[Rfam]
RNA sequence: CAUAGCCAAAGAAUCGUCACUAAUCGAAGCUUACAAACUGGAGUGUGUUUAUUCAUGCUCAAUUUUGCUUUGGGUUGAAAGUCUCCGACCAGUUCAUAUGCGGAAAUCGUAAUGAGAUUUAAAAAUUUUAAAAUGUUUAAAUCCACUCAUUAAGGUGUAAUAACCUUUCUACCUGGAACUCGUGUUUCAGUGCUUUUCGGUAGGGAAAUCUUUUAGAUUUCAAACCAUAGUUAUGACGAUUGUUCAGCAAUUUAUGCUGAAUAACCCAAUGGAGCUUACUUUUCUUGGCUCAU
Numbered sequence: 001c002a003u004a005g006c007c008a009a010a011g012a013a014u015c016g017u018c019a020c021u022a023a024u025c026g027a028a029g030c031u032u033a034c035a036a037a038c039u040g041g042a043g044u045g046u047g048u049u050u051a052u053u054c055a056u057g058c059u060c061a062a063u064u065u066u067g068c069u070u071u072g073g074g075u076u077g078a079a080a081g082u083c084u085c086c087g088a089c090c091a092g093u094u095c096a097u098a099u100g101c102g103g104a105a106a107u108c109g110u111a112a113u114g115a116g117a118u119u120u121a122a123a124a125a126u127u128u129u130a131a132a133a134u135g136u137u138u139a140a141a142u143c144c145a146c147u148c149a150u151u152a153a154g155g156u157g158u159a160a161u162a163a164c165c166u167u168u169c170u171a172c173c174u175g176g177a178a179c180u181c182g183u184g185u186u187u188c189a190g191u192g193c194u195u196u197u198c199g200g201u202a203g204g205g206a207a208a209u210c211u212u213u214u215a216g217a218u219u220u221c222a223a224a225c226c227a228u229a230g231u232u233a234u235g236a237c238g239a240u241u242g243u244u245c246a247g248c249a250a251u252u253u254a255u256g257c258u259g260a261a262u263a264a265c266c267c268a269a270u271g272g273a274g275c276u277u278a279c280u281u282u283u284c285u286u287g288g289c290u291c292a293u
Stems, first nucleotide, its partner, number of pairs: 002293002004290006011284002013240006024073007041060007079277003083274004099111004160211001162209001166206008243261006
Background
This 293-nucleotide sequence from Torulaspora globosa belongs to the Rfam family "RNase MRP". The match comes from Rfam's covariance-model search (88 bits). By type it is a ribozyme.